[Rfam]
RNA sequence: ACCGUCCUUAUCUUGGGGUUGCGCUACUGUUCAAUGAACGUAUAGUGAGAACAGUACUGCUAACGCCUACACAACACUUGAGCAUCCCUGGGGUCUAGGCCCCAACGUGGUGCAAUUUUUGGAAU
Numbered sequence: 001a002c003c004g005u006c007c008u009u010a011u012c013u014u015g016g017g018g019u020u021g022c023g024c025u026a027c028u029g030u031u032c033a034a035u036g037a038a039c040g041u042a043u044a045g046u047g048a049g050a051a052c053a054g055u056a057c058u059g060c061u062a063a064c065g066c067c068u069a070c071a072c073a074a075c076a077c078u079u080g081a082g083c084a085u086c087c088c089u090g091g092g093g094u095c096u097a098g099g100c101c102c103c104a105a106c107g108u109g110g111u112g113c114a115a116u117u118u119u120u121g122g123a124a125u
Base pairs, nucleotide, nucleotide: 006018007017008016009015021060022059023058026055027054028053029052030051031050032049038046039045082113083112084111085110086109087107089104090103091102092101093100094099

Source information
The family of this 125-nucleotide RNA sequence from Anolis carolinensis is "U4atac minor spliceosomal RNA". Clan: U4 clan. By type it is a spliceosomal small nuclear RNA. From the family's description: U4atac is an essential component of the minor U12-type spliceosome complex which is required for removal of the rarer class of eukaryotic introns (AT-AC, U12-type). Rfam's curators put it in the seed alignment.